[Rfam]
RNA sequence: UCUUCAGUGAGGUAUAUCCUUACCUGUUACUCCAAACAUGGAGUUUCAGUACAUGAUGAAUGGAGAGCCAUGAGAUAUGAUUAAUAUCUCCAUCUUGUAGGGAACGCAACACCCUACAAGACCAUUCUGAU
Numbered sequence: 001u002c003u004u005c006a007g008u009g010a011g012g013u014a015u016a017u018c019c020u021u022a023c024c025u026g027u028u029a030c031u032c033c034a035a036a037c038a039u040g041g042a043g044u045u046u047c048a049g050u051a052c053a054u055g056a057u058g059a060a061u062g063g064a065g066a067g068c069c070a071u072g073a074g075a076u077a078u079g080a081u082u083a084a085u086a087u088c089u090c091c092a093u094c095u096u097g098u099a100g101g102g103a104a105c106g107c108a109a110c111a112c113c114c115u116a117c118a119a120g121a122c123c124a125u126u127c128u129g130a131u
Stems, first nucleotide, its partner, number of pairs: 024049003029044005072090002075087003078083001094120008
U8 small nucleolar RNA: a 131-nucleotide sequence from Liparis tanakae. On this family, see Peculis et al., Gene 2001: "The U8 snoRNA gene family: identification and characterization of distinct, functional U8 genes in Xenopus". The base pairs follow the family's consensus structure, which is taken from published work. Lineage of the source: Eukaryota > Opisthokonta > Eurypterygia > Percomorphaceae > Liparis.